A member of the RNA family "Bacterial RNase P class B" from Bacillus salinus, 394 nucleotides long. Gene Ontology terms of the family: tRNA processing, dimeric ribonuclease P complex and ribonuclease P activity. For this family Rfam cites "Ribonuclease P: unity and diversity in a tRNA processing ribozyme" (Frank and Pace, Annu Rev Biochem, 1998). Rfam's curators write: Ribonuclease P (RNase P) is a ubiquitous endoribonuclease, found in archaea, bacteria and eukarya as well as chloroplasts and mitochondria. Its best characterised activity is the generation of mature 5'-ends of tRNAs by cleaving the 5'-leader elements of precursor-tRNAs. Cellular RNase Ps are ribonucleoproteins. It scores 304 bits against the family's covariance model.
[Rfam]
RNA sequence: AACGUGAGAGAAUCGCGCAAAGCUUUAAGCUUUGUGAGGAAAGUCCGUACUCGCACAGGCUGCGAUGCCUGUAGUGUUCGUGCCAAGCGAAACAGUAAGCUUGGGCAGUCCAUAAACGUAUGGACUGACGGCAGGGACCGCACCUAAGUCCGAUUUGGAUAUGGUGCCAAUACCUUGAAAGUGCCACAGUGACGGAGCUUCAAGAGAAAUUUUGAAGGUGGAACGAGGUAAACCCCACGAGCGAGAAACCCAAAUUUGGUAGGGGAAGCGUCUGGCGGGAAUUGAACCAAAAGGACGCCACAGUUUAAGCUGUGAGAUAGAUGAUUCUCCAUAUUGUGCGAGGGCAUAUACUGUCCGAUUAUAGCACACUAUGAACAGAAUGCGGCUUACGAAC
Numbered sequence: 001a002a003c004g005u006g007a008g009a010g011a012a013u014c015g016c017g018c019a020a021a022g023c024u025u026u027a028a029g030c031u032u033u034g035u036g037a038g039g040a041a042a043g044u045c046c047g048u049a050c051u052c053g054c055a056c057a058g059g060c061u062g063c064g065a066u067g068c069c070u071g072u073a074g075u076g077u078u079c080g081u082g083c084c085a086a087g088c089g090a091a092a093c094a095g096u097a098a099g100c101u102u103g104g105g106c107a108g109u110c111c112a113u114a115a116a117c118g119u120a121u122g123g124a125c126u127g128a129c130g131g132c133a134g135g136g137a138c139c140g141c142a143c144c145u146a147a148g149u150c151c152g153a154u155u156u157g158g159a160u161a162u163g164g165u166g167c168c169a170a171u172a173c174c175u176u177g178a179a180a181g182u183g184c185c186a187c188a189g190u191g192a193c194g195g196a197g198c199u200u201c202a203a204g205a206g207a208a209a210u211u212u213u214g215a216a217g218g219u220g221g222a223a224c225g226a227g228g229u230a231a232a233c234c235c236c237a238c239g240a241g242c243g244a245g246a247a248a249c250c251c252a253a254a255u256u257u258g259g260u261a262g263g264g265g266a267a268g269c270g271u272c273u274g275g276c277g278g279g280a281a282u283u284g285a286a287c288c289a290a291a292a293g294g295a296c297g298c299c300a301c302a303g304u305u306u307a308a309g310c311u312g313u314g315a316g317a318u319a320g321a322u323g324a325u326u327c328u329c330c331a332u333a334u335u336g337u338g339c340g341a342g343g344g345c346a347u348a349u350a351c352u353g354u355c356c357g358a359u360u361a362u363a364g365c366a367c368a369c370u371a372u373g374a375a376c377a378g379a380a381u382g383c384g385g386c387u388u389a390c391g392a393a394c
Base pairs, nucleotide, nucleotide: 004394005393008329009328010327011326012325013324014323016036017035018034019033020032021031041388042387043386045385046384047383048382049381050245051244052243053242054241055072056071057070058069059068060067078240079239080238081237082236083104084103085102086101087100088099105129106127107126108125109124110123111122112121113120114119130235131234133175134174135173141166142165143164144163148160149159150158151157152156181233182232183229184228185227198217199216200215201214202213203212204211205210249264250263251262268298269297270296271295272294273293299314300313301312302311303310304309331372332371333370335368336367337366338365339364
Dot-bracket structure: ...((..(((((((.((((((.........))))))....[[[.[[[[[(((((((((((......)))))).....(((((((((((..........))))))((((((((((....))))))))).)((.(((.....((((...(((((...)))))..))))......))).....(((((............((((((((....)))))))).........)))..))))))))))))))...(((..........)))...((((((...................))))))((((((....))))))........))))))).(((.(((((........................))))).)))........]]]]]]]]....))